The family of this 117-nucleotide RNA from Arthrobacter sp. Edens01 is "SAM (S-adenosyl methionine) riboswitch aptamer".

RNA sequence: GGUCAUGAGUGCCAGCAGAUAGCCCCGGCUUGCUGGCCGGCAACCCUCCAACCGCGGUGGGGUGCCCCGGGUGAAGACCUGGCCGUACGCAAACAGGCGUACCGGCAAGCGCGGGCC
Numbered sequence: 001g002g003u004c005a006u007g008a009g010u011g012c013c014a015g016c017a018g019a020u021a022g023c024c025c026c027g028g029c030u031u032g033c034u035g036g037c038c039g040g041c042a043a044c045c046c047u048c049c050a051a052c053c054g055c056g057g058u059g060g061g062g063u064g065c066c067c068c069g070g071g072u073g074a075a076g077a078c079c080u081g082g083c084c085g086u087a088c089g090c091a092a093a094c095a096g097g098c099g100u101a102c103c104g105g106c107a108a109g110c111g112c113g114g115g116c117c
Base pairs, nucleotide, nucleotide: 001079002078003077004076009038011037012036013035014034015033016032021030022029039066040065041064044062045061046060048057049056082106083105084104085103086101087100088099089098090097
NCBI's taxonomy places the organism under Bacteria, Bacillati, Actinomycetota, Actinomycetes, Arthrobacter.